[Rfam]
RNA sequence: UUCUUAUCAAGAGAGGUUUAGGGAAUUGGCCCGUUGACGCCUCAGCAACCUUCAUUGCCCAGAACAAUGAAAAGGUGCUAACUCCAUCAAGUUUUAAUAACUUGAAAGAUAAGAA
Numbered sequence: 001u002u003c004u005u006a007u008c009a010a011g012a013g014a015g016g017u018u019u020a021g022g023g024a025a026u027u028g029g030c031c032c033g034u035u036g037a038c039g040c041c042u043c044a045g046c047a048a049c050c051u052u053c054a055u056u057g058c059c060c061a062g063a064a065c066a067a068u069g070a071a072a073a074g075g076u077g078c079u080a081a082c083u084c085c086a087u088c089a090a091g092u093u094u095u096a097a098u099a100a101c102u103u104g105a106a107a108g109a110u111a112a113g114a115a
Stems, first nucleotide, its partner, number of pairs: 001115008013043005021032003027086003044079004049075002051071007083107001088104006
Overview
Shown here is a 115-nucleotide sequence from Bacillus sp. MUM 13, a member of the family "SAM riboswitch aptamer (S box leader)". Taxonomically the source falls in Bacillus (Bacteria, Bacillati, Bacilli, Bacillaceae).